[Rfam]
RNA sequence: CGAUCCCAAGGGGAUGGAGUUCCCCAAAACCGCCUUUCGGCUGAUAACUCCUACCGACGG
Dot-bracket structure: .........[[[[..((((((]]]]......(((....)))....)))))).........
Rfam assigns this 60-nucleotide sequence from Methylacidimicrobium cyclopophantes to the family "Fluoride riboswitch aptamer (crcB RNA motif)". The organism belongs to Methylacidimicrobium, within Bacteria. The base pairs follow the family's consensus structure, which is taken from published work. The literature on the family includes a 2012 paper in Science by Baker et al., "Widespread genetic switches and toxicity resistance proteins for fluoride". It scores 55 bits against the family's covariance model.